[Rfam]
RNA sequence: AUGAUGAUGAAGGAAACCCGACAUAUAUGCAGGAGGAUUGGCUCCUGCGUCUCUACCCGGACACCGUAAUGACCGGACUAUGCGGGAAAGCAACUUUUGG
Numbered sequence: 001a002u003g004a005u006g007a008u009g010a011a012g013g014a015a016a017c018c019c020g021a022c023a024u025a026u027a028u029g030c031a032g033g034a035g036g037a038u039u040g041g042c043u044c045c046u047g048c049g050u051c052u053c054u055a056c057c058c059g060g061a062c063a064c065c066g067u068a069a070u071g072a073c074c075g076g077a078c079u080a081u082g083c084g085g086g087a088a089a090g091c092a093a094c095u096u097u098u099g100g
Base pairs, nucleotide, nucleotide: 018086019085022082023081024080025079029048030047031046032045033044034043035042057076058075059074060073062071063070
RNA: Purine riboswitch aptamer
Organism: Planococcus lenghuensis